[Rfam]
RNA sequence: CACCGCUUGGUGAUGAUUUUACCGAUAGGACACGACUUAGUAUCGCGGGCGCUAUCACGCGCACGCGCAGAAAGGCCGUGAGGUAACAAGGAG
Numbered sequence: 001c002a003c004c005g006c007u008u009g010g011u012g013a014u015g016a017u018u019u020u021a022c023c024g025a026u027a028g029g030a031c032a033c034g035a036c037u038u039a040g041u042a043u044c045g046c047g048g049g050c051g052c053u054a055u056c057a058c059g060c061g062c063a064c065g066c067g068c069a070g071a072a073a074g075g076c077c078g079u080g081a082g083g084u085a086a087c088a089a090g091g092a093g
Stems, first nucleotide, its partner, number of pairs: 001012004020085004031080004036075002043069001044067003
The record is a 93-nucleotide RNA, which matches "RT-18 RNA" in Rfam. Rfam's curators put it in the seed alignment. Pairs were carried over by alignment from the consensus structure, which is taken from published work.